Record summary: Shown here is an 81-nucleotide sequence from Flavobacterium sp. PL002, a member of the family "Flavo-1 RNA". By type it is a small RNA.
RNA sequence: UUCUAGCCCAGAUAGCAAUGAAAAUCCUUUUACUUUUUUUCUUUAAAAAGUAAAAGAUUGCAAUGGAUAGCUGGAAUAGCU
Numbered sequence: 001u002u003c004u005a006g007c008c009c010a011g012a013u014a015g016c017a018a019u020g021a022a023a024a025u026c027c028u029u030u031u032a033c034u035u036u037u038u039u040u041c042u043u044u045a046a047a048a049a050g051u052a053a054a055a056g057a058u059u060g061c062a063a064u065g066g067a068u069a070g071c072u073g074g075a076a077u078a079g080c081u
Base pairs, nucleotide, nucleotide: 009073010072011071013069014068018064019063023059024058025057026056029054030053031052032051033050034049035048036047037046038045